RNA sequence: CCUCCCUGUCCAACACCAGGGCCUUCUGGAGGCAGUGCAGGGUUCUGGUCUUUCUCAUGGGAUAGAGCACUGGGCUUGUUUUCCCUCCCCGCUGGAUGGCGUUCCUCCUGGGGCCUAAAGAGAAGCCGACAGU
Numbered sequence: 001c002c003u004c005c006c007u008g009u010c011c012a013a014c015a016c017c018a019g020g021g022c023c024u025u026c027u028g029g030a031g032g033c034a035g036u037g038c039a040g041g042g043u044u045c046u047g048g049u050c051u052u053u054c055u056c057a058u059g060g061g062a063u064a065g066a067g068c069a070c071u072g073g074g075c076u077u078g079u080u081u082u083c084c085c086u087c088c089c090c091g092c093u094g095g096a097u098g099g100c101g102u103u104c105c106u107c108c109u110g111g112g113g114c115c116u117a118a119a120g121a122g123a124a125g126c127c128g129a130c131a132g133u
Stems, first nucleotide, its partner, number of pairs: 003062004008056001016048006022041003026037001073127003077123001087113005094106002
Background: This 133-nucleotide RNA sequence from Scleropages formosus belongs to the Rfam family "Small nucleolar RNA SNORA49". NCBI's taxonomy places the organism under Eukaryota, Deuterostomia, Actinopteri, Neopterygii, Scleropages. The snoRNA ACA49 has no identified RNA target. NB genomic sequence 1-nt different from published. Gene Ontology terms of the family: nucleolus and RNA processing. The family's RNA type in Rfam is H/ACA-box small nucleolar RNA.